[Rfam]
RNA sequence: UCCCUUGCGCUUGGGGCAAUGACGCAGCUUAUGAGGUUUUACCGAGGCGCGUCUUCUGCUGGUUGAAAAACUAUUUCCAAGACCCCUCUUCGGCCCAGGCCGUAGAGAAUUUUUGGAAGGGUUUGCCCUCAAGGGUAAAGCC
Numbered sequence: 001u002c003c004c005u006u007g008c009g010c011u012u013g014g015g016g017c018a019a020u021g022a023c024g025c026a027g028c029u030u031a032u033g034a035g036g037u038u039u040u041a042c043c044g045a046g047g048c049g050c051g052u053c054u055u056c057u058g059c060u061g062g063u064u065g066a067a068a069a070a071c072u073a074u075u076u077c078c079a080a081g082a083c084c085c086c087u088c089u090u091c092g093g094c095c096c097a098g099g100c101c102g103u104a105g106a107g108a109a110u111u112u113u114u115g116g117a118a119g120g121g122u123u124u125g126c127c128c129u130c131a132a133g134g135g136u137a138a139a140g141c142c
Stems, first nucleotide, its partner, number of pairs: 021053005027048003035043003086107004091102004120142004
The family of this 142-nucleotide RNA from Digitaria exilis is "U4 spliceosomal RNA". The match comes from Rfam's covariance-model search (91 bits). The source organism's lineage runs through Eukaryota, Embryophyta, Magnoliopsida, Poales and Digitaria. About the family: U4 small nuclear RNA (U4 snRNA) is a component of the major U2-dependent spliceosome.